A member of the RNA family "DUF3800-IX RNA", 66 nucleotides long.
RNA sequence: UACUGCCCUGCGAAGAGUCGCCGAUUGUGGCGGCCUGUUCAAAAUGAACUAGCAGGGCAGUUUUCA
Numbered sequence: 001u002a003c004u005g006c007c008c009u010g011c012g013a014a015g016a017g018u019c020g021c022c023g024a025u026u027g028u029g030g031c032g033g034c035c036u037g038u039u040c041a042a043a044a045u046g047a048a049c050u051a052g053c054a055g056g057g058c059a060g061u062u063u064u065c066a
Stems, first nucleotide, its partner, number of pairs: 002061010017034006037049004
Dot-bracket structure: .((((((((((.....((((((......))))))..((((.....))))..)))))))))).....

Pairs were carried over by alignment from the consensus structure, which is taken from published work. From the family's description: Actinobacteria, Firmicutes (1 example), Nitrospirae, Proteobacteria, Verrucomicrobia (1 example). The family's RNA type in Rfam is small RNA.